[Rfam]
Nucleotides: 104
Base pairs, nucleotide, nucleotide: 001104002103003102004101005100006099007098008097013041015040016039017038021031022030023029025079026078027077028076042071043070044069045068047067048066049062050061051060052059075096080093081092082091083090084089
Number, partner (000 for none) and nucleotide at each position: 001104c002103u003102c004101u005100u006099a007098u008097c009000g010000a011000g012000a013041g014000a015040g016039g017038c018000g019000g020000a021031g022030g023029g024000a025079c026078u027077g028076g029023c030022c031021c032000g033000a034000u035000g036000a037000a038017g039016c040015c041013c042071g043070g044069c045068a046000a047067c048066c049062u050061g051060c052059c053000c054000g055000u056000a057000a058000g059052g060051g061050c062049a063000u064000g065000a066048g067047g068045u069044g070043c071042c072000a073000a074000c075096a076028c077027c078026a079025g080093c081092g082091a083090c084089c085000g086000a087000c088000a089084g090083g091082u092081c093080g094000a095000g096075u097008g098007a099006u100005a101004a102003g103002a104001g

Shown here is a 104-nucleotide sequence from Dethiosulfovibrio peptidovorans, a member of the family "SAM riboswitch aptamer (S box leader)".
For this family Rfam cites "The S box regulon: a new global transcription termination control system for methionine and cysteine biosynthesis genes in gram-positive bacteria" (Grundy and Henkin, Mol Microbiol, 1998).
The source organism's lineage runs through Bacteria, Synergistota, Synergistales, Dethiosulfovibrionaceae and Dethiosulfovibrio peptidovorans.